[Rfam]
RNA sequence: AGGUGGUUCCGGGCCCCUCUGGCGCGUGCGGUCGGCGACGCGCGAUGUCGGAACCGCGAG
Number, nucleotide and partner (000 for none) at each position: 001a000002g000003g000004u000005g000006g054007u053008u052009c051010c050011g049012g048013g000014c000015c000016c000017c000018u000019c000020u000021g000022g043023c042024g041025c040026g039027u037028g036029c035030g000031g000032u000033c000034g000035g029036c028037g027038a000039c026040g025041c024042g023043c022044g000045a000046u000047g000048u012049c011050g010051g009052a008053a007054c006055c000056g000057c000058g000059a000060g000